[Rfam]
RNA: glmS glucosamine-6-phosphate activated ribozyme aptamer
Organism: Polycladospora coralii
RNA sequence: UCAUGUUGAAAAGCGCCAGGACUAUAGAGAGAGGUCUAUAGUAGACGAGGUGGAGGUUUAUCGAAAGGAUCGGCGGGUACCUCCCGGUUCCACGUCAGAACCGCAGAGUUAUGGUUUAAACCUAUUGGGUGACCAGUAGACAAAGACCGUAACGUGACGUUUA
Number, nucleotide and partner (000 for none) at each position: 001u000002c000003a000004u000005g000006u000007u000008g000009a000010a000011a000012a000013g000014c000015g000016c000017c000018a000019g000020g000021a042022c041023u040024a039025u038026a037027g036028a000029g000030a000031g000032a000033g000034g000035u000036c027037u026038a025039u024040a023041g022042u021043a000044g000045a000046c000047g000048a000049g000050g000051u000052g084053g083054a082055g081056g080057u000058u000059u000060a000061u073062c072063g071064a070065a000066a000067g000068g000069a000070u064071c063072g062073g061074c000075g000076g000077g000078u000079a000080c056081c055082u054083c053084c052085c103086g102087g101088u100089u099090c098091c000092a000093c000094g000095u000096c000097a000098g090099a089100a088101c087102c086103g085104c000105a000106g000107a000108g153109u152110u151111a150112u149113g148114g147115u000116u000117u000118a000119a000120a000121c000122c139123u138124a137125u136126u135127g134128g133129g000130u000131g000132a000133c128134c127135a126136g125137u124138a123139g122140a000141c000142a000143a000144a000145g000146a000147c114148c113149g112150u111151a110152a109153c108154g000155u000156g000157a000158c000159g000160u000161u000162u000163a000